[Rfam]
RNA sequence: AGAACCUUUAAAUUCAGUCCUGUGAGGCUGAGAAGGAAUCGGAUGAUAUAGGAAUAAGUAGGAUAUAUGUGCGUAAAAUCAGUCAUUCCUCUCGCUUCGUGGGCGGGAGGAAUUUUUUUGU
Number, nucleotide and partner (000 for none) at each position: 001a000002g000003a000004a000005c036006c035007u034008u033009u032010a000011a000012a000013u000014u031015c030016a029017g028018u027019c026020c000021u000022g000023u000024g000025a000026g019027g018028c017029u016030g015031a014032g009033a008034a007035g006036g005037a000038a000039u000040c000041g000042g000043a000044u000045g079046a000047u077048a000049u075050a074051g000052g072053a000054a070055u069056a068057a000058g066059u000060a000061g000062g000063a000064u000065a000066u058067a000068u056069g055070u054071g000072c052073g000074u050075a049076a000077a047078a000079u045080c000081a000082g116083u000084c000085a113086u112087u111088c110089c109090u108091c107092u106093c105094g104095c103096u000097u000098c000099g000100u000101g000102g000103g095104c094105g093106g092107g091108a090109g089110g088111a087112a086113u085114u000115u000116u082117u000118u000119u000120g000121u000
The family of this 121-nucleotide sequence from [Anoxybacillus] calidus is "PyrR binding site".
Rfam describes the family as follows. This family represents the PyrR binding site and terminator structure.